[Rfam]
RNA sequence: UGCAGCUUUGUCAAAUUCAGUGCCUGUUAUACCCAUGGUAGGCACUGGCCCAGAGGGCUGCUACAGAAACAUUGUGACUCAUGGGCCCUGUUCCCUUUGACUAGGCUCAGGGAUAAAUUUGAUCACAGACAACA
Numbered sequence: 001u002g003c004a005g006c007u008u009u010g011u012c013a014a015a016u017u018c019a020g021u022g023c024c025u026g027u028u029a030u031a032c033c034c035a036u037g038g039u040a041g042g043c044a045c046u047g048g049c050c051c052a053g054a055g056g057g058c059u060g061c062u063a064c065a066g067a068a069a070c071a072u073u074g075u076g077a078c079u080c081a082u083g084g085g086c087c088c089u090g091u092u093c094c095c096u097u098u099g100a101c102u103a104g105g106c107u108c109a110g111g112g113a114u115a116a117a118u119u120u121g122a123u124c125a126c127a128g129a130c131a132a133c134a
Base pairs, nucleotide, nucleotide: 002061003060004059005058018047019046020045021044022043023042024041025040026039027038028037074126075125076124077123079121086112087111088110089109090108
A member of the RNA family "Small nucleolar RNA SNORA5" from Sciurus carolinensis, 134 nucleotides long. About the family: ACA5 is a member of the H/ACA class of snoRNA that guide the sites of modification of uridines to pseudouridines. Clan: SNORA5 clan. By type it is an H/ACA-box small nucleolar RNA. The source organism's lineage runs through Eukaryota, Metazoa, Dipnotetrapodomorpha, Euarchontoglires and Sciurus.